This 98-nucleotide RNA sequence from Elaeis guineensis belongs to the Rfam family "mir-393 microRNA precursor family".
Gene Ontology terms of the family: miRNA-mediated post-transcriptional gene silencing and RISC complex.
NCBI's taxonomy places the organism under Eukaryota, Embryophyta, Arecales, Arecaceae, Elaeis.

RNA sequence: CGAGGGAGCAUCCAAAGGGAUCGCAUUGAUCCGUUCUUCACAUGCAUUCUUUUGUGGCAAUGGAACCCGGAUCAUGCGAUCCUUUUGGAUCCCUCCUC
Numbered sequence: 001c002g003a004g005g006g007a008g009c010a011u012c013c014a015a016a017g018g019g020a021u022c023g024c025a026u027u028g029a030u031c032c033g034u035u036c037u038u039c040a041c042a043u044g045c046a047u048u049c050u051u052u053u054g055u056g057g058c059a060a061u062g063g064a065a066c067c068c069g070g071a072u073c074a075u076g077c078g079a080u081c082c083u084u085u086u087g088g089a090u091c092c093c094u095c096c097u098c
Stems, first nucleotide, its partner, number of pairs: 002098005008092001010090012023077004028073005033066005